Rfam assigns this 139-nucleotide RNA from Musca domestica to the family "Wolbachia sRNA 46". Rfam 15.1 lists 237 matches to the family in 34 species.
[Rfam]
RNA sequence: UCUAAAAUCACCUCCAUAUAUCGAUUCCAGAUACCAACACAGACCUUAAUAUUAAAUUUAAGGAUUCUAUAUGGAUGAAAUCCUUAAAUUUAAUAUUAAGGUCUGUGUUGGUAUCUGGAAUCGAUAUAUGGAGGUGAUU
Numbered sequence: 001u002c003u004a005a006a007a008u009c010a011c012c013u014c015c016a017u018a019u020a021u022c023g024a025u026u027c028c029a030g031a032u033a034c035c036a037a038c039a040c041a042g043a044c045c046u047u048a049a050u051a052u053u054a055a056a057u058u059u060a061a062g063g064a065u066u067c068u069a070u071a072u073g074g075a076u077g078a079a080a081u082c083c084u085u086a087a088a089u090u091u092a093a094u095a096u097u098a099a100g101g102u103c104u105g106u107g108u109u110g111g112u113a114u115c116u117g118g119a120a121u122c123g124a125u126a127u128a129u130g131g132a133g134g135u136g137a138u139u
Base pairs, nucleotide, nucleotide: 011134012133013132014131015130020125021124022123023122024121025120026119027118028117029116030115031114032113033112034111035110036109037108038107039106040105041104042103043102044101045100046099047098048097049096050095
Background: Pairs were carried over by alignment from the consensus structure.